Rfam assigns this 133-nucleotide RNA sequence from Nicotiana attenuata to the family "mir-166 microRNA precursor family". Its family is annotated with RISC complex and miRNA-mediated post-transcriptional gene silencing in the Gene Ontology. The base pairs follow the family's consensus structure, which was predicted with PFOLD.
[Rfam]
RNA sequence: UUUGAGGGGAAUGUUGUCUGGCUCGAGGCCAUUAACUUGGUCCAAUAAGAAUUUAAUUUCUUUUCCCUUUUGAGAUAAAAGGGAUCAUGGAUCAUGGGUUAGUGUCGUCGGACCAGGCUUCAUUCCCCCCAAA
Dot-bracket structure: ((((.((((((((..((((((..(((.................................................................................)))..))))))..)))))))).))))